[Rfam]
Nucleotides: 270
Base pairs, nucleotide, nucleotide: 011126012125013124014123015122016121017120018119019066020065021064022062023061024060026058027057028056029055030052031051032050033049034048035046036045037044038043074118077115081106082105084103086101137193138192139191143187144186150179152177153176154175155174156173157172158171159168160167198263199262201259202258203257204256205255214248215247217245220243221242222241225235226234227233228232
Number, partner (000 for none) and nucleotide at each position: 001000u002000u003000c004000u005000c006000u007000c008000c009000a010000c011126g012125g013124a014123c015122c016121u017120g018119u019066g020065c021064c022062c023061a024060g025000c026058c027057g028056u029055c030052c031051c032050c033049u034048u035046c036045c037044g038043c039000u040000c041000c042000g043038g044037u045036g046035g047000u048034g049033a050032g051031g052030g053000u054000c055029g056028a057027u058026g059000g060024c061023u062022g063000a064021g065020g066019c067000a068000g069000u070000u071000c072000g073000g074118c075000a076000a077115c078000c079000a080000a081106g082105g083000a084103g085000c086101c087000a088000u089000c090000u091000u092000g093000u094000u095000c096000a097000c098000c099000a100000u101086g102000a103084u104000g105082u106081c107000a108000a109000u110000u111000u112000c113000c114000u115077g116000c117000c118074g119018a120017c121016a122015g123014g124013u125012u126011c127000c128000a129000g130000a131000g132000c133000a134000a135000c136000c137193g138192a139191a140000u141000u142000u143187u144186g145000g146000g147000g148000a149000g150179c151000c152177c153176c154175g155174u156173u157172c158171g159168c160167u161000g162000u163000c164000a165000a166000a167160g168159g169000c170000u171158u172157g173156a174155g175154c176153g177152g178000u179150g180000g181000u182000g183000a184000a185000g186144c187143a188000g189000a190000u191139u192138u193137u194000a195000c196000g197000g198263g199262u200000a201259g202258u203257c204256a205255u206000a207000u208000u209000c210000c211000a212000a213000g214248c215247c216000g217245u218000u219000c220243g221242c222241c223000g224000a225235g226234a227233u228232c229000g230000u231000c232228g233227a234226u235225c236000c237000a238000u239000g240000a241222g242221g243220c244000u245217g246000g247215g248214g249000g250000a251000a252000a253000c254000c255205a256204u257203g258202a259201c260000c261000c262199g263198c264000c265000a266000c267000a268000u269000u270000u
Overview:
A member of the RNA family "A. fumigatus sRNA Afu_309" from Schizothecium vesticola, 270 nucleotides long. Taxonomically the source falls in Schizothecium (Eukaryota, Opisthokonta, Dikarya, sordariomyceta). A reference for the family is Jochl et al. (2008), "Small ncRNA transcriptome analysis from Aspergillus fumigatus suggests a novel mechanism for regulation of protein synthesis", Nucleic Acids Res.